Shown here is a 368-nucleotide RNA from Gillisella ampelina, a member of the family "Alphaproteobacteria transfer-messenger RNA".
By type it is a non-coding RNA gene.
Taxonomically the source falls in Gillisella ampelina (Bacteria, Alphaproteobacteria, Hyphomicrobiales, Rhizobiaceae).
RNA sequence: GGUCUUUUCAUCCGUGCGGAAAACACCUAUAUCCACCUUGCCGGUGCUUGCAUCGGCUAUGGCAAUAAACGGUCGGUGAAAUAAACCUAUUGGACCCGGGGGCGGUACCCGGCGCCUCCACCAAAAACCGGUCGGUCUUUGUGACCGGCUUUUGAUGGGGGCGAAAUAGGAUCGACAAGGGCGUAAAGAUCGAACUUUUGCUCGGCAUGAUACCACCGUCAUCGGGUCACAAGUGUAGUUGCAAAUGACAACAACGCUCAGGGUUACGCUGUCGCUGCUUAAUCGCGGUGCCAGAAACCCAAACUAAGUCCUUACGGGUAGCACCGUAAGGCGGGGUUCGGAGGUACCUGGCAACAGAAACCUCCACU
Number, nucleotide and partner (000 for none) at each position: 001g000002g000003u000004c000005u000006u000007u000008u000009c000010a000011u000012c000013c000014g000015u000016g000017c000018g000019g000020a000021a000022a000023a000024c000025a000026c000027c000028u000029a000030u000031a000032u000033c000034c000035a000036c000037c000038u000039u000040g057041c056042c055043g054044g053045u052046g051047c000048u000049u000050g000051c046052a045053u044054c043055g042056g041057c040058u000059a000060u000061g202062g201063c200064a199065a198066u000067a000068a000069a000070c000071g195072g000073u193074c192075g191076g190077u189078g000079a000080a000081a000082u000083a000084a000085a000086c181087c180088u179089a000090u178091u177092g176093g000094a000095c000096c112097c111098g110099g109100g108101g000102g000103c000104g000105g000106u000107a000108c100109c099110c098111g097112g096113c163114g162115c161116c160117u159118c158119c157120a000121c000122c000123a000124a000125a000126a000127a000128c000129c000130g000131g000132u000133c000134g000135g000136u000137c000138u000139u000140u000141g000142u000143g000144a000145c000146c000147g000148g000149c000150u000151u000152u000153u000154g000155a000156u000157g119158g118159g117160g116161g115162c114163g113164a000165a000166a000167u000168a000169g000170g000171a000172u000173c000174g000175a000176c092177a091178a090179g088180g087181g086182c000183g000184u000185a000186a000187a000188g000189a077190u076191c075192g074193a073194a000195c071196u000197u000198u065199u064200g063201c062202u061203c218204g217205g216206c000207a000208u229209g228210a227211u000212a000213c225214c224215a000216c205217c204218g203219u000220c000221a000222u000223c000224g214225g213226g000227u210228c209229a208230c000231a000232a000233g000234u000235g000236u000237a000238g000239u000240u000241g000242c000243a000244a000245a000246u000247g000248a000249c000250a000251a000252c000253a000254a000255c000256g000257c000258u000259c000260a000261g000262g000263g000264u000265u000266a000267c000268g000269c000270u000271g000272u000273c000274g000275c000276u000277g000278c000279u000280u000281a000282a000283u000284c000285g000286c000287g000288g000289u000290g000291c000292c000293a000294g000295a000296a000297a000298c000299c000300c000301a000302a000303a000304c000305u000306a000307a000308g000309u000310c000311c000312u000313u000314a000315c000316g000317g000318g000319u000320a000321g000322c000323a000324c000325c000326g000327u000328a000329a000330g000331g000332c000333g000334g349335g348336g347337u346338u000339c000340g365341g364342a363343g362344g361345u360346a337347c336348c335349u334350g000351g000352c000353a000354a000355c000356a000357g000358a000359a000360a345361c344362c343363u342364c341365c340366a000367c000368u000